BsrG: a 254-nucleotide RNA from Ureibacillus manganicus.
Rfam 15.1 lists 614 matches to the family in 343 species.
RNA sequence: AAUUGUAAUAGUUUGGUAACUCAAGGGUGGUUGGCUCACUCCUCUUUUAGAUUGGGGGUGAGGCCUAUGACAGUAUAUGAAGCAUUAAUGUUUGCAGUAGCAUUCGCGGCAUUGAUUGUAUCAAUACUUUCAUCAAUCCAUAAAAAAUAACCCAUCCUUGAGUUGAGAGCUCGAUGGGUUACUGUACCAAAGGGCCAAUCCCCCUUGAAGGGAUCGACUAUUAUGUUUGACUACUUGAUGCUGUAACAUCAGGU
Numbered sequence: 001a002a003u004u005g006u007a008a009u010a011g012u013u014u015g016g017u018a019a020c021u022c023a024a025g026g027g028u029g030g031u032u033g034g035c036u037c038a039c040u041c042c043u044c045u046u047u048u049a050g051a052u053u054g055g056g057g058g059u060g061a062g063g064c065c066u067a068u069g070a071c072a073g074u075a076u077a078u079g080a081a082g083c084a085u086u087a088a089u090g091u092u093u094g095c096a097g098u099a100g101c102a103u104u105c106g107c108g109g110c111a112u113u114g115a116u117u118g119u120a121u122c123a124a125u126a127c128u129u130u131c132a133u134c135a136a137u138c139c140a141u142a143a144a145a146a147a148u149a150a151c152c153c154a155u156c157c158u159u160g161a162g163u164u165g166a167g168a169g170c171u172c173g174a175u176g177g178g179u180u181a182c183u184g185u186a187c188c189a190a191a192g193g194g195c196c197a198a199u200c201c202c203c204c205u206u207g208a209a210g211g212g213a214u215c216g217a218c219u220a221u222u223a224u225g226u227u228u229g230a231c232u233a234c235u236u237g238a239u240g241c242u243g244u245a246a247c248a249u250c251a252g253g254u
Base pairs, nucleotide, nucleotide: 001228002227004225005224007222008221009220011218013198014197015196016195017194020162021161022160023159024158025157026156027155029152030151031150032149036061037060038059040058041057042056043055044054069131070130072128073127074126075125082095083094084093108121172184173183199213200212201211202210233254234253235252236251237250238249239248240247
About the family: bsrE, bsrG and bsrH pair through intermolecular interactions with antisense sRNAs. They form type I toxin/antitoxin system that includes an mRNA encoding for a short, toxic peptide (bsrE, bsrG and bsrH) and an antitoxin that is comprised of an antisense RNA. bsrG encodes a 39-amino-acid toxin, and the 180 nucleotide antisense sRNA called SR4 acts as the antitoxin (they overlap by 123 nucleotides). SR4 interaction with the 3'UTR of bsrG RNA promotes bsrG degradation and inhibits its translation. BsrG interferes with cell envelope biosynthesis, causes membrane invaginations and delocalisation of the cell wall synthesis and initiates autolysis. bsrE RNA encodes 30 amino-acid toxin peptide.
The organism belongs to Ureibacillus manganicus, within Bacteria.